[Rfam]
RNA sequence: AGUGCCGUCAGGUAAAGUGACGAUGGUGUGUCCCAUCCGCGCCACUGGUUCAGGCGGCACGAGA
Numbered sequence: 001a002g003u004g005c006c007g008u009c010a011g012g013u014a015a016a017g018u019g020a021c022g023a024u025g026g027u028g029u030g031u032c033c034c035a036u037c038c039g040c041g042c043c044a045c046u047g048g049u050u051c052a053g054g055c056g057g058c059a060c061g062a063g064a
Stems, first nucleotide, its partner, number of pairs: 002060005016046004021041002027035001